Shown here is a 267-nucleotide RNA sequence from Equus caballus, a member of the family "bip internal ribosome entry site (IRES)". Pairs were carried over by alignment from the consensus structure, which was predicted with PFOLD. It scores 189 bits against the family's covariance model. This family represents the bip internal ribosome entry site (IRES). BiP protein expression has been found to be significantly enhanced by the heat shock response due to IRES-dependent translation.

RNA sequence: CGCUGGCCGAGACAUCACAGUUCUAGCGAUUUGGGCGUUUCGUGAGUGUGAGAGGUAAGCGUCGCGGCCUGUCUUUCCUGACCUGCCCUUCGCCGUGUCCGCUACUUCUCGUGACCCCGGGCCCUGUCGCCCUCAGGUCGGUACCCUCGGUGCGCUCCGGUGCUGCGGCCUGUGACUGGAUUGCCUGCGACGUGCUGCCUGCCUGCUGACCGACUGGCCGACGGCGCCGGCAAGAUGAAGCUCUCCCUGGUGGCUGCGGUGCUGCUG
Numbered sequence: 001c002g003c004u005g006g007c008c009g010a011g012a013c014a015u016c017a018c019a020g021u022u023c024u025a026g027c028g029a030u031u032u033g034g035g036c037g038u039u040u041c042g043u044g045a046g047u048g049u050g051a052g053a054g055g056u057a058a059g060c061g062u063c064g065c066g067g068c069c070u071g072u073c074u075u076u077c078c079u080g081a082c083c084u085g086c087c088c089u090u091c092g093c094c095g096u097g098u099c100c101g102c103u104a105c106u107u108c109u110c111g112u113g114a115c116c117c118c119g120g121g122c123c124c125u126g127u128c129g130c131c132c133u134c135a136g137g138u139c140g141g142u143a144c145c146c147u148c149g150g151u152g153c154g155c156u157c158c159g160g161u162g163c164u165g166c167g168g169c170c171u172g173u174g175a176c177u178g179g180a181u182u183g184c185c186u187g188c189g190a191c192g193u194g195c196u197g198c199c200u201g202c203c204u205g206c207u208g209a210c211c212g213a214c215u216g217g218c219c220g221a222c223g224g225c226g227c228c229g230g231c232a233a234g235a236u237g238a239a240g241c242u243c244u245c246c247c248u249g250g251u252g253g254c255u256g257c258g259g260u261g262c263u264g265c266u267g
Stems, first nucleotide, its partner, number of pairs: 004256006016162003020158001030120002033117003059107001061105002064102004166178003170174001